[Rfam]
Rfam assigns this 51-nucleotide RNA from Metapseudomonas resinovorans to the family "Guanidine-II riboswitch aptamer (mini-ykkC)". About the family: Simpler in structure and has fewer highly conserved nucleotide positions than the ykkC-yxkD leader. Despite this each of its two stem-loop structures directly bind free guanidine. The family's consensus secondary structure is taken from published work. The family has 72 seed sequences and 1,589 matches in Rfam 15.1.
RNA sequence: GCGCAAGGACGACCUUGCCACUCACUCAGUGAUCAACCGGGGACGGCCCCA
Number, nucleotide and partner (000 for none) at each position: 001g000002c000003g018004c017005a016006a015007g014008g013009a000010c000011g000012a000013c008014c007015u006016u005017g004018c003019c000020a000021c000022u000023c000024a000025c000026u000027c000028a000029g000030u000031g000032a000033u000034c000035a000036a000037c000038c000039g050040g049041g048042g047043a000044c000045g000046g000047c042048c041049c040050c039051a000